[Rfam]
RNA sequence: GGCGAGGCUCGAAAGAGGUGAGGGCUCCGUAAGGAGGAGGGCGCGAGCCCUUAGUACGUGGGGGCCUGAUCAGGGUUUCGCCUUUCGUCUUGAAUCACGG
Numbered sequence: 001g002g003c004g005a006g007g008c009u010c011g012a013a014a015g016a017g018g019u020g021a022g023g024g025c026u027c028c029g030u031a032a033g034g035a036g037g038a039g040g041g042c043g044c045g046a047g048c049c050c051u052u053a054g055u056a057c058g059u060g061g062g063g064g065c066c067u068g069a070u071c072a073g074g075g076u077u078u079c080g081c082c083u084u085u086c087g088u089c090u091u092g093a094a095u096c097a098c099g100g
Stems, first nucleotide, its partner, number of pairs: 001082010015071002023066006033057001038051005085100004
A member of the RNA family "Archaeal large subunit ribosomal RNA" from Sulfodiicoccus acidiphilus, 100 nucleotides of a longer RNA.
The base pairs follow the family's consensus structure, which is taken from published work.
Its Rfam clan is "LSU clan".